Rfam assigns this 109-nucleotide RNA to the family "atpB RNA". The base pairs follow the family's consensus structure, which is taken from published work. By type it is a cis-regulatory element. Rfam's curators put it in the seed alignment.

RNA sequence: CACGGGCCCCCGCGAUGAUGUGCGACGGAAUCCGCGGUGGGCUAUGCACAUAGACCUCCAUCGCACCGUUUUCUGUUUGGCAGAAAGCGGCCCGAACACGGGAGAGAAC
Dot-bracket structure: ((.((.((.(((......................))).)).)).))...................((((((((((.....))))))))))...................